[Rfam]
RNA sequence: GUGCGAUGAAUGACUUGGAUAAGUUUCGGCUGAAACUUGGUGAUGCCAACUUUUUAAAACUGCUGAGCAC
Dot-bracket structure: ((((..............................................................))))
RNA: Caenorhabditis snoRNA ceN108